[Rfam]
RNA sequence: GGGUGUUGAUGCUGAGAAGCGUGUCAGGAAGCGGGACUCAGCGUAGCCUUGUGUAGGGUUUAGCUAUUUAUACCUCAACCUGACUUAUGCAUGUCAUGUGCAGACAUAAAAAAUAGCGAAUU
Numbered sequence: 001g002g003g004u005g006u007u008g009a010u011g012c013u014g015a016g017a018a019g020c021g022u023g024u025c026a027g028g029a030a031g032c033g034g035g036a037c038u039c040a041g042c043g044u045a046g047c048c049u050u051g052u053g054u055a056g057g058g059u060u061u062a063g064c065u066a067u068u069u070a071u072a073c074c075u076c077a078a079c080c081u082g083a084c085u086u087a088u089g090c091a092u093g094u095c096a097u098g099u100g101c102a103g104a105c106a107u108a109a110a111a112a113a114u115a116g117c118g119a120a121u122u
Stems, first nucleotide, its partner, number of pairs: 001049004011042006020033003024083004063117003088102004
RNA: drum RNA